Rfam assigns this 133-nucleotide sequence from Castor canadensis to the family "Small nucleolar RNA U109".
Lineage of the source: Eukaryota > Metazoa > Vertebrata > Teleostomi > Castor.
Rfam 15.1 lists 1,405 matches to the family in 622 species.
Pairs were carried over by alignment from the consensus structure, which was predicted with WAR.
[Rfam]
RNA sequence: CUGCAUGUGGAAACGUCUGCCCUCAUUCCUUUAAGGGUAGGAAUGCAUCCAUAACAUGCUACAUUUAAAAAGGAGUCUCAGGACUGCCAACCUUACAGUAAAGGUUGAGUAGUAGUGUAUUUCUCCUACAUAA
Number, nucleotide and partner (000 for none) at each position: 001c000002u000003g059004c058005a057006u056007g055008u054009g000010g000011a000012a000013a000014c000015g000016u041017c040018u039019g038020c037021c036022c035023u034024c000025a000026u000027u000028c000029c000030u000031u000032u000033a000034a023035g022036g021037g020038u019039a018040g017041g016042a000043a000044u000045g000046c000047a000048u000049c000050c000051a000052u000053a000054a008055c007056a006057u005058g004059c003060u000061a000062c000063a000064u000065u000066u000067a000068a000069a000070a000071a000072g126073g125074a124075g123076u000077c000078u000079c000080a000081g000082g000083a113084c112085u000086g000087c109088c107089a106090a105091c104092c103093u102094u101095a000096c000097a000098g000099u000100a000101a094102a093103g092104g091105u090106u089107g088108a000109g087110u000111a000112g084113u083114a000115g000116u000117g000118u000119a000120u000121u000122u000123c075124u074125c073126c072127u000128a000129c000130a000131u000132a000133a000